Rfam assigns this 117-nucleotide sequence to the family "PyrR binding site". From the family's description: This family represents the PyrR binding site and terminator structure. This RNA structure is found upstream of a variety of genes involved in pyrimidine biosynthesis and transport. The literature on the family includes a 2001 paper in Nucleic Acids Res by Bonner et al., "Molecular recognition of pyr mRNA by the Bacillus subtilis attenuation regulatory protein PyrR".

RNA sequence: UUUUUUUUUUAAAAAAAAAAAAAAAAAAAAGGGGGGGGGGAAAAAGGGAAAAAAAAAAAAAUUUUUUUUUUUUUUUUCCCCCCCCCCCCCCCCCCCGGGGGGGGGGGGGGGGUUUUU
Numbered sequence: 001u002u003u004u005u006u007u008u009u010u011a012a013a014a015a016a017a018a019a020a021a022a023a024a025a026a027a028a029a030a031g032g033g034g035g036g037g038g039g040g041a042a043a044a045a046g047g048g049a050a051a052a053a054a055a056a057a058a059a060a061a062u063u064u065u066u067u068u069u070u071u072u073u074u075u076u077u078c079c080c081c082c083c084c085c086c087c088c089c090c091c092c093c094c095c096c097g098g099g100g101g102g103g104g105g106g107g108g109g110g111g112g113u114u115u116u117u
Base pairs, nucleotide, nucleotide: 007024008023009022010021044075045074046073047072048071049070050069051068052067053066054065055064056063057062078112079111080110081109082108083107084106085105086104087103088102089101090100091099